The record is a 68-nucleotide RNA sequence from Pusillimonas sp. ANT_WB101, which matches "Fluoride riboswitch aptamer (crcB RNA motif)" in Rfam. The source organism's lineage runs through Bacteria, Pseudomonadati, Pseudomonadota, Betaproteobacteria and Pusillimonas. The literature on the family includes a 2012 paper in Science by Baker et al., "Widespread genetic switches and toxicity resistance proteins for fluoride". A search with the family's covariance model found it, with a score of 47 bits.
RNA sequence: ACUGAACACGGAGAUGGCAUUCCUCCUUUAACCAUUGGCUAACGUCAAUUAAUGAUGCCUACAGAUCC
Numbered sequence: 001a002c003u004g005a006a007c008a009c010g011g012a013g014a015u016g017g018c019a020u021u022c023c024u025c026c027u028u029u030a031a032c033c034a035u036u037g038g039c040u041a042a043c044g045u046c047a048a049u050u051a052a053u054g055a056u057g058c059c060u061a062c063a064g065a066u067c068c
Stems, first nucleotide, its partner, number of pairs: 010026004016059006034049006